[Rfam]
RNA sequence: AAGACUAUACUUUCAGGGAUCAUUUCUAUAGUUCCUGACUUGAGAAAUGUGUUUCUAAAGUGUUGGUCUCGCUAACCACGAUGAAGAGGUGGUGAUGCUCCUCUCUGAGCGCGAAGCGGGCAGAGAAACUUGAUUCACUUCAUGUGUUCUCUGCUUUUGAUGACCGUUCAGCGCCUCCAUCCGGGGCUUUGAGGGGAGGAGCAUGAUCAGAGUGGU
Numbered sequence: 001a002a003g004a005c006u007a008u009a010c011u012u013u014c015a016g017g018g019a020u021c022a023u024u025u026c027u028a029u030a031g032u033u034c035c036u037g038a039c040u041u042g043a044g045a046a047a048u049g050u051g052u053u054u055c056u057a058a059a060g061u062g063u064u065g066g067u068c069u070c071g072c073u074a075a076c077c078a079c080g081a082u083g084a085a086g087a088g089g090u091g092g093u094g095a096u097g098c099u100c101c102u103c104u105c106u107g108a109g110c111g112c113g114a115a116g117c118g119g120g121c122a123g124a125g126a127a128a129c130u131u132g133a134u135u136c137a138c139u140u141c142a143u144g145u146g147u148u149c150u151c152u153g154c155u156u157u158u159g160a161u162g163a164c165c166g167u168u169c170a171g172c173g174c175c176u177c178c179a180u181c182c183g184g185g186g187c188u189u190u191g192a193g194g195g196g197a198g199g200a201g202c203a204u205g206a207u208c209a210g211a212g213u214g215g216u
Base pairs, nucleotide, nucleotide: 001041002040003039005037009032010031011030015027016026017025018024050065051064055062075216076215077214078213079212095204096203097202098201099200100199101198102197103196104195105194106193109167110166111165119155120154121153122152125149126148127147129144131142132141133140170190171189173187174186175185176184177183
RNA: Small nucleolar RNA U3